[Rfam]
RNA sequence: GGCGAUAAACGGGCGACGUAAUAAGCCACUCGGACCCGGGGGCAGUACCCGGCGCCUCCACCAGGUUUCAGUUUCGCGUACGAAUUCGCGAGGGACAUGAUGCGAACUGGAACGUGGCGGGGGCGAAACAGGCUCGACGAGGGUGUAAAGGUCGUACUUUUGCUCGGCAUGGUAUCCGCCGUUAUCGGGCCAAACCAAAUAGUUGCCAACGACAACUAUGCGGAGGCACGUCUCGCUGCGUAG
Number, nucleotide and partner (000 for none) at each position: 001g164002g163003c162004g161005a160006u000007a000008a000009a000010c000011g000012g000013g000014c154015g153016a152017c151018g000019u000020a000021a000022u000023a000024a000025g000026c143027c142028a000029c000030u140031c139032g138033g000034a000035c000036c052037c051038g050039g049040g048041g000042g000043c000044a000045g000046u000047a000048c040049c039050c038051g037052g036053c125054g124055c123056c122057u121058c120059c119060a000061c000062c000063a000064g000065g000066u000067u000068u000069c000070a000071g000072u000073u000074u000075c000076g000077c000078g000079u000080a000081c000082g000083a000084a000085u000086u000087c000088g000089c000090g000091a000092g000093g000094g000095a000096c000097a000098u000099g000100a000101u000102g000103c000104g000105a000106a000107c000108u000109g000110g000111a000112a000113c000114g000115u000116g000117g000118c000119g059120g058121g057122g056123g055124c054125g053126a000127a000128a000129c000130a000131g000132g000133c000134u000135c000136g000137a000138c032139g031140a030141g000142g027143g026144u000145g000146u000147a000148a000149a000150g000151g017152u016153c015154g014155u000156a000157c000158u000159u000160u005161u004162g003163c002164u001165c181166g180167g179168c178169a000170u000171g000172g000173u000174a000175u000176c000177c000178g168179c167180c166181g165182u000183u000184a000185u000186c000187g000188g000189g000190c000191c000192a000193a000194a000195c000196c000197a000198a000199a000200u000201a000202g000203u000204u000205g000206c000207c000208a000209a000210c000211g000212a000213c000214a000215a000216c000217u000218a000219u000220g000221c000222g000223g000224a000225g000226g000227c000228a000229c000230g000231u000232c000233u000234c000235g000236c000237u000238g000239c000240g000241u000242a000243g000
Shown here is a 243-nucleotide RNA from Methyloceanibacter marginalis, a member of the family "permuted transfer-messenger RNA".
Gene Ontology term of the family: RNA catabolic process.
NCBI's taxonomy places the organism under Bacteria, Pseudomonadati, Alphaproteobacteria, Hyphomicrobiales, Methyloceanibacter.